[Rfam]
RNA: Fluoride riboswitch aptamer (crcB RNA motif)
RNA sequence: UUAUCGCUAAGCGAUGAAGCUCGCUUGGUGCUAAACCAACCGCCUUUUUGGGCUGAUAGCUUCUAACCGUUA
Numbered sequence: 001u002u003a004u005c006g007c008u009a010a011g012c013g014a015u016g017a018a019g020c021u022c023g024c025u026u027g028g029u030g031c032u033a034a035a036c037c038a039a040c041c042g043c044c045u046u047u048u049u050g051g052g053c054u055g056a057u058a059g060c061u062u063c064u065a066a067c068c069g070u071u072a
Stems, first nucleotide, its partner, number of pairs: 010025004016063006042053004